[Rfam]
RNA: Glycine riboswitch aptamer
Nucleotides: 116
Stems, first nucleotide, its partner, number of pairs: 007110001009108005020050004052095003055091002059089001061087001065082005
Number, partner (000 for none) and nucleotide at each position: 001000g002000c003000c004000g005000g006000g007110c008000a009108c010107u011106c012105u013104g014000g015000a016000a017000a018000g019000c020050g021049u022048c023047c024000u025000c026000c027000u028000u029000c030000g031000c032000c033000c034000u035000u036000c037000g038000g039000g040000c041000c042000u043000u044000g045000g046000c047023g048022g049021g050020c051000c052095a053094c054093c055091g056090a057000c058000g059089g060000u061087g062000u063000a064000a065082g066081c067080g068079g069078g070000u071000u072000u073000u074000g075000c076000g077000a078069c079068u080067c081066g082065c083000c084000a085000a086000g087061c088000u089059c090056u091055c092000a093054g094053g095052u096000u097000u098000c099000a100000g101000c102000g103000a104013c105012a106011g107010a108009g109000g110007g111000g112000g113000c114000c115000g116000g